[Rfam]
The family of this 73-nucleotide RNA sequence from Crocodylus porosus is "Mammalian CPEB3 ribozyme". Pairs were carried over by alignment from the consensus structure, which is taken from published work. Taxonomically the source falls in Crocodylus (Eukaryota, Opisthokonta, Dipnotetrapodomorpha, Sauria).

RNA sequence: CGUGUACGUAGGGGGGACAUAGCAGAAGGGUUCACAUCACGAACCCUGUCCAGUAACACUUGCAAAUUCUGCU
Numbered sequence: 001c002g003u004g005u006a007c008g009u010a011g012g013g014g015g016g017a018c019a020u021a022g023c024a025g026a027a028g029g030g031u032u033c034a035c036a037u038c039a040c041g042a043a044c045c046c047u048g049u050c051c052a053g054u055a056a057c058a059c060u061u062g063c064a065a066a067u068u069c070u071g072c073u
Stems, first nucleotide, its partner, number of pairs: 013046003018041001021073007028040001030038001050062001052060003